tRNA: a 72-nucleotide sequence from Syntrophothermus lipocalidus.
[Rfam]
RNA sequence: GCCGGCGUAGCUCAGCGGUAGAGCAGUCGAUUCGUAAUCGACAGGUCGUCAGUUCGAAUCUGACCGUCGGCU
Numbered sequence: 001g002c003c004g005g006c007g008u009a010g011c012u013c014a015g016c017g018g019u020a021g022a023g024c025a026g027u028c029g030a031u032u033c034g035u036a037a038u039c040g041a042c043a044g045g046u047c048g049u050c051a052g053u054u055c056g057a058a059u060c061u062g063a064c065c066g067u068c069g070g071c072u
Stems, first nucleotide, its partner, number of pairs: 001071007010024004026042005048064005

The family's RNA type in Rfam is transfer RNA. About the family: Transfer RNA (tRNA) molecules are approximately 80 nucleotides in length.